RNA: mir-310 microRNA precursor family
RNA sequence: UUAUUUGAAGACCGUGGAUUGUUGCAAAGUAUGUAUUUUCCAAAGCAUAUUGCACAAUCCCCGGCCUGUAAAUAA
Numbered sequence: 001u002u003a004u005u006u007g008a009a010g011a012c013c014g015u016g017g018a019u020u021g022u023u024g025c026a027a028a029g030u031a032u033g034u035a036u037u038u039u040c041c042a043a044a045g046c047a048u049a050u051u052g053c054a055c056a057a058u059c060c061c062c063g064g065c066c067u068g069u070a071a072a073u074a075a
Stems, first nucleotide, its partner, number of pairs: 001075007010066001013063002016060002020056002024053001028051006